About this RNA: The family of this 64-nucleotide sequence is "nadA riboswitch". Rfam's curators put it in the seed alignment.
[Rfam]
RNA sequence: GGCUUCAACAGCCCCGUAGGUCGGGUCACAGCCCAGCAACACUGACAGUGGACCUACUGGAGCC
Numbered sequence: 001g002g003c004u005u006c007a008a009c010a011g012c013c014c015c016g017u018a019g020g021u022c023g024g025g026u027c028a029c030a031g032c033c034c035a036g037c038a039a040c041a042c043u044g045a046c047a048g049u050g051g052a053c054c055u056a057c058u059g060g061a062g063c064c
Stems, first nucleotide, its partner, number of pairs: 001064007013050001014048001016057007023049001025046004031040001